[Rfam]
A member of the RNA family "Guanidine-I riboswitch aptamer" from Paenibacillus albus, 119 nucleotides long. It scores 82 bits against the family's covariance model. The organism belongs to Paenibacillus, within Bacteria.
RNA sequence: GACAAAGCUAUCUAGGGUUCCGUUGAUGAGCAACUUCUUUUCAUUCAUCAAGCUGGUCCGAGAGAUAGUGUGCAGCGCGCGAACGCUGCAUAACACGGAAGGACAAAAGCCUGGGAGAU
Numbered sequence: 001g002a003c004a005a006a007g008c009u010a011u012c013u014a015g016g017g018u019u020c021c022g023u024u025g026a027u028g029a030g031c032a033a034c035u036u037c038u039u040u041u042c043a044u045u046c047a048u049c050a051a052g053c054u055g056g057u058c059c060g061a062g063a064g065a066u067a068g069u070g071u072g073c074a075g076c077g078c079g080c081g082a083a084c085g086c087u088g089c090a091u092a093a094c095a096c097g098g099a100a101g102g103a104c105a106a107a108a109g110c111c112u113g114g115g116a117g118a119u
Stems, first nucleotide, its partner, number of pairs: 007069006015059002020056002022053001023051008070091008094114001096117001100112003